[Rfam]
RNA sequence: UGUUGCCCAUGAUGAUUUUCUAUAUCAAUGGGAAUCUCUCUGAAAAAAAUAAAUGUUGAUGUUGAUAUCCUGAGGCACA
Numbered sequence: 001u002g003u004u005g006c007c008c009a010u011g012a013u014g015a016u017u018u019u020c021u022a023u024a025u026c027a028a029u030g031g032g033a034a035u036c037u038c039u040c041u042g043a044a045a046a047a048a049a050u051a052a053a054u055g056u057u058g059a060u061g062u063u064g065a066u067a068u069c070c071u072g073a074g075g076c077a078c079a
Base pairs, nucleotide, nucleotide: 001079002078004077005076006075007074

The record is a 79-nucleotide RNA from Rotaria magnacalcarata, which matches "Small nucleolar RNA SNORD79" in Rfam. Rfam describes the family as follows. snoRNA U79 or Z22 is found in intron 7 of the gas5 gene in humans and is also present in mice. Taxonomically the source falls in Rotaria (Eukaryota, Opisthokonta, Rotifera, Bdelloidea). It is annotated as a C/D-box small nucleolar RNA. The family has 28 seed sequences and 784 matches in Rfam 15.1. It scores 52 bits against the family's covariance model. Its family is annotated with RNA processing and nucleolus in the Gene Ontology.